[Rfam]
A member of the RNA family "Bacterial large subunit ribosomal RNA" from Anaerolinea thermolimosa, 444 nucleotides of a longer RNA.
RNA sequence: CUCCCCGAAAUAGCUAUAGGGCUAGCGCCUCCUGUUGAACUGUGGAGGUAGAGCACUGAAUGAGAGAGGGGGCUUAGAGCUUACCGAACUCAAACAAACUCCGAAUGCCACAGUUGGAGAGGGAGGUAGUCGGACUACGGGUGAUGAGAUUCGUGGUCGAGAGGGAAACAGCCCAGACCAUCGGCUAAGGUCCCGAAAUACAGACUAAGUGGGAAACGAUGUGGAGUUACCGAGACAACCAGGAGGUUGGCUUAGAAGCAGCCAUCCUUGAAAGAGUGCGUAAUAGCUCACUGGUUCAGUGAUUCUGCGCGGAAAACUUAACGGGGCUAAGUCUGAUACCGAAGCCAUGGAUCUGCUACUGAAGAGGUAGUGGAUGGUAGGGGAGCGUUCCGCCAGCGGGGAAGGCAUACCGGAAGGAGUGCUGGAGCGGGCGGAAGUGAGAAU
Numbered sequence: 001c002u003c004c005c006c007g008a009a010a011u012a013g014c015u016a017u018a019g020g021g022c023u024a025g026c027g028c029c030u031c032c033u034g035u036u037g038a039a040c041u042g043u044g045g046a047g048g049u050a051g052a053g054c055a056c057u058g059a060a061u062g063a064g065a066g067a068g069g070g071g072g073c074u075u076a077g078a079g080c081u082u083a084c085c086g087a088a089c090u091c092a093a094a095c096a097a098a099c100u101c102c103g104a105a106u107g108c109c110a111c112a113g114u115u116g117g118a119g120a121g122g123g124a125g126g127u128a129g130u131c132g133g134a135c136u137a138c139g140g141g142u143g144a145u146g147a148g149a150u151u152c153g154u155g156g157u158c159g160a161g162a163g164g165g166a167a168a169c170a171g172c173c174c175a176g177a178c179c180a181u182c183g184g185c186u187a188a189g190g191u192c193c194c195g196a197a198a199u200a201c202a203g204a205c206u207a208a209g210u211g212g213g214a215a216a217c218g219a220u221g222u223g224g225a226g227u228u229a230c231c232g233a234g235a236c237a238a239c240c241a242g243g244a245g246g247u248u249g250g251c252u253u254a255g256a257a258g259c260a261g262c263c264a265u266c267c268u269u270g271a272a273a274g275a276g277u278g279c280g281u282a283a284u285a286g287c288u289c290a291c292u293g294g295u296u297c298a299g300u301g302a303u304u305c306u307g308c309g310c311g312g313a314a315a316a317c318u319u320a321a322c323g324g325g326g327c328u329a330a331g332u333c334u335g336a337u338a339c340c341g342a343a344g345c346c347a348u349g350g351a352u353c354u355g356c357u358a359c360u361g362a363a364g365a366g367g368u369a370g371u372g373g374a375u376g377g378u379a380g381g382g383g384a385g386c387g388u389u390c391c392g393c394c395a396g397c398g399g400g401g402a403a404g405g406c407a408u409a410c411c412g413g414a415a416g417g418a419g420u421g422c423u424g425g426a427g428c429g430g431g432c433g434g435a436a437g438u439g440a441g442a443a444u
Stems, first nucleotide, its partner, number of pairs: 001385006011024005026129001027127007036120001038115008051102001052100002057096002061092004068085002070082005133158010163174003178350004183346003189340003198337001201335005217311002221308010238295005244268003249263003269273001274289001278287002351375010386439001388436007396428002404423005410417002